A member of the RNA family "Selenocysteine transfer RNA" from Tropilaelaps mercedesae, 86 nucleotides long.
A search with the family's covariance model found it, with a score of 74 bits.
On this family, see Mizutani and Goto, FEBS Lett 2000: "Eukaryotic selenocysteine tRNA has the 9/4 secondary structure".
[Rfam]
RNA sequence: ACCUGGCUGAUCUCCGGUGGUCCGGGGUGUAGGCUUCAAACCUGUAGCUGAUUAGAGUCAGAGUGGUUCGAUUCCACCUGCCAGGU
Numbered sequence: 001a002c003c004u005g006g007c008u009g010a011u012c013u014c015c016g017g018u019g020g021u022c023c024g025g026g027g028u029g030u031a032g033g034c035u036u037c038a039a040a041c042c043u044g045u046a047g048c049u050g051a052u053u054a055g056a057g058u059c060a061g062a063g064u065g066g067u068u069c070g071a072u073u074c075c076a077c078c079u080g081c082c083a084g085g086u
Stems, first nucleotide, its partner, number of pairs: 001086007009078001012027006028046006048061005063077004